Background: The family of this 46-nucleotide RNA sequence from Cricetulus griseus is "Histone 3' UTR stem-loop". It scores 42 bits against the family's covariance model. By type it is a cis-regulatory element. The family's consensus secondary structure is taken from published work.

RNA sequence: CCAAAGGCUCUUUUCAGAGCCACCCACAAUUUCAAGUAAAAUGGCU
Numbered sequence: 001c002c003a004a005a006g007g008c009u010c011u012u013u014u015c016a017g018a019g020c021c022a023c024c025c026a027c028a029a030u031u032u033c034a035a036g037u038a039a040a041a042u043g044g045c046u
Stems, first nucleotide, its partner, number of pairs: 006021006